[Rfam]
RNA sequence: AUACCUUAAACUUAUGAGUAAGGAACACAAUGAUUUGGGGUGACACCUAAAUCCUCACUGCUGAUGUGAGACGAAUUUUUGAGUGGGUAAAGGUCAUCCCUAAGGUGACCUGCCUGCUUUGCAGGAUGCCUGGAAGUCCCAUUCUGCCUC
Numbered sequence: 001a002u003a004c005c006u007u008a009a010a011c012u013u014a015u016g017a018g019u020a021a022g023g024a025a026c027a028c029a030a031u032g033a034u035u036u037g038g039g040g041u042g043a044c045a046c047c048u049a050a051a052u053c054c055u056c057a058c059u060g061c062u063g064a065u066g067u068g069a070g071a072c073g074a075a076u077u078u079u080u081g082a083g084u085g086g087g088u089a090a091a092g093g094u095c096a097u098c099c100c101u102a103a104g105g106u107g108a109c110c111u112g113c114c115u116g117c118u119u120u121g122c123a124g125g126a127u128g129c130c131u132g133g134a135a136g137u138c139c140c141a142u143u144c145u146g147c148c149u150c
Base pairs, nucleotide, nucleotide: 004023005022006021007020008019032053033052034051035050036049037048038047039046054070055069056068057067058066085149086148087147088146091145092144093143101133103131104130105129106128107127109125110124111123112122113121
The family of this 150-nucleotide sequence from Lynx pardinus is "U12 minor spliceosomal RNA". It is annotated as a spliceosomal small nuclear RNA. The organism belongs to Lynx, within Eukaryota.